[Rfam]
RNA: mir-17 microRNA precursor family
Organism: Megalops atlanticus
RNA sequence: GCCCUCCUGCUAAGGUGCAUCUAGUGCAGUUAGUGAAUUAGUCUAGAAUCUACUGCGCUAGGUGUUCCUUCUGGCAGGAGCAG
Numbered sequence: 001g002c003c004c005u006c007c008u009g010c011u012a013a014g015g016u017g018c019a020u021c022u023a024g025u026g027c028a029g030u031u032a033g034u035g036a037a038u039u040a041g042u043c044u045a046g047a048a049u050c051u052a053c054u055g056c057g058c059u060a061g062g063u064g065u066u067c068c069u070u071c072u073g074g075c076a077g078g079a080g081c082a083g
Base pairs, nucleotide, nucleotide: 004080005079006078007077009075010074011073013069014068015067017065018064019063020062021061022060023059024058025057026056027055029054031052032051033050